[Rfam]
RNA sequence: AAACUAUCAAGAAGACGGGAGAGAUAUAGCUCUGUGAUCGUCUACCAACCAGUUAUCAAACAAGGUGGUAAAGUUAUAAACGAUGGAAA
Numbered sequence: 001a002a003a004c005u006a007u008c009a010a011g012a013a014g015a016c017g018g019g020a021g022a023g024a025u026a027u028a029g030c031u032c033u034g035u036g037a038u039c040g041u042c043u044a045c046c047a048a049c050c051a052g053u054u055a056u057c058a059a060a061c062a063a064g065g066u067g068g069u070a071a072a073g074u075u076a077u078a079a080a081c082g083a084u085g086g087a088a089a
Base pairs, nucleotide, nucleotide: 004086005085006084007083008082013043014042015041016040017039021032022031023030026077027076028075029074044069045068046067047066049065050064052061053060054059073081
SAM riboswitch aptamer (S box leader): an 89-nucleotide RNA sequence from Mariniplasma anaerobium. It scores 46 bits against the family's covariance model.